Small nucleolar RNA SNORA31: a 129-nucleotide RNA sequence from Diceros bicornis. It is annotated as an H/ACA-box small nucleolar RNA.
Nucleotides: 129
Stems, first nucleotide, its partner, number of pairs: 002062007011051001014048005021039002024036003074121006085109002087103005
Number, partner (000 for none) and nucleotide at each position: 001000a002062u003061g004060c005059a006058u007057c008056u009000a010000u011051u012000u013000c014048a015047g016046a017045c018044c019000u020000g021039u022038a023000a024036c025035a026034g027000u028000u029000a030000c031000u032000g033000u034026c035025u036024g037000c038022u039021g040000c041000u042000a043000a044018g045017g046016u047015u048014u049000a050000c051011a052000c053000u054000a055000c056008a057007g058006a059005u060004g061003c062002a063000a064000g065000g066000a067000a068000a069000a070000a071000g072000u073000g074121u075120c076119c077118u078117c079116u080000u081000g082000c083000u084000u085109u086108c087103u088102u089101g090100u091099c092000u093000g094000a095000u096000u097000g098000u099091g100090g101089c102088a103087g104000c105000a106000a107000u108086g109085a110000u111000c112000a113000a114000a115000u116079g117078g118077g119076g120075g121074a122000a123000u124000a125000u126000a127000g128000a129000u

From the family's description: ACA31 (SNORA31) belongs to the H/ACA class of snoRNAs which are thought to guide the sites of modification of uridines to pseudouridines. ACA31 is predicted to guide the pseudouridylation of U3713 in 28S rRNA and U218 in 18S rRNA. This family includes the mouse homologue snoMBI-161.